[Rfam]
RNA sequence: AUCAUUAUUCGCCCCAUUCCUUGCAGGGUGGGCUAGCACGCGUCGGUAUCUUCAGCACAUGCAACCCGCCCCCGAGGCGGGUUGU
Numbered sequence: 001a002u003c004a005u006u007a008u009u010c011g012c013c014c015c016a017u018u019c020c021u022u023g024c025a026g027g028g029u030g031g032g033c034u035a036g037c038a039c040g041c042g043u044c045g046g047u048a049u050c051u052u053c054a055g056c057a058c059a060u061g062c063a064a065c066c067c068g069c070c071c072c073c074g075a076g077g078c079g080g081g082u083u084g085u
Stems, first nucleotide, its partner, number of pairs: 012030001014028002017025001062084009

The record is an 85-nucleotide sequence from Pararobbsia silviterrae, which matches "Pseudomonas sRNA P9" in Rfam.
This small RNA (sRNA) was computationally identified in the genome of the opportunistic pathogen Pseudomonas aeruginosa and its expression verified by northern blot analysis. P9 appears to be conserved in several Pseudomonas species in addition to Bordetella spp. In both Pseudomonas and Bordetella spp P9 appears to be located upstream of a predicted threonine dehydratase gene.